[Rfam]
Nucleotides: 087
Stems, first nucleotide, its partner, number of pairs: 006048007015039002017075004024035004064082005
Number, partner (000 for none) and nucleotide at each position: 001000g002000c003000c004000g005000g006048u007047g008046g009045c010044c011043g012042u013000g014000a015039c016038u017075g018074g019073c020072g021000a022000g023000g024035g025034u026033g027032g028000g029000u030000c031000a032027c033026c034025a035024c036000c037000g038016g039015g040000g041000a042012g043011c044010g045009g046008c047007c048006g049000a050000g051000c052000g053000a054000c055000c056000c057000g058000u059000g060000a061000u062000g063000c064082g065081c066080g067079c068078c069000g070000c071000c072020c073019g074018c075017c076000u077000g078068g079067g080066u081065g082064c083000c084000a085000g086000g087000g
This 87-nucleotide sequence from Promicromonospora soli belongs to the Rfam family "ZMP/ZTP riboswitch aptamer (pfl RNA motif)".
A search with the family's covariance model found it, with a score of 43 bits.
The organism belongs to Promicromonospora, within Bacteria.
The family's consensus secondary structure is taken from published work.